[Rfam]
RNA sequence: UCGACACUCUGGAAAGCGGCGCGCGGCUCCUGCCACGCGCCCACCGAAGGGGUAACUCGCCCAGGCGAGGAAAGCUCUCAGGUCCCGUGACAGAGGGGGAAAC
Numbered sequence: 001u002c003g004a005c006a007c008u009c010u011g012g013a014a015a016g017c018g019g020c021g022c023g024c025g026g027c028u029c030c031u032g033c034c035a036c037g038c039g040c041c042c043a044c045c046g047a048a049g050g051g052g053u054a055a056c057u058c059g060c061c062c063a064g065g066c067g068a069g070g071a072a073a074g075c076u077c078u079c080a081g082g083u084c085c086c087g088u089g090a091c092a093g094a095g096g097g098g099g100a101a102a103c
Base pairs, nucleotide, nucleotide: 005097007095008094009093010092011091018041019040020039021038022037023036043083044082045081046079047078050077051076052075056070057069
The family of this 103-nucleotide RNA sequence from Sphingomonas sp. Leaf231 is "Glycine riboswitch aptamer".
The organism belongs to Sphingomonas, within Bacteria.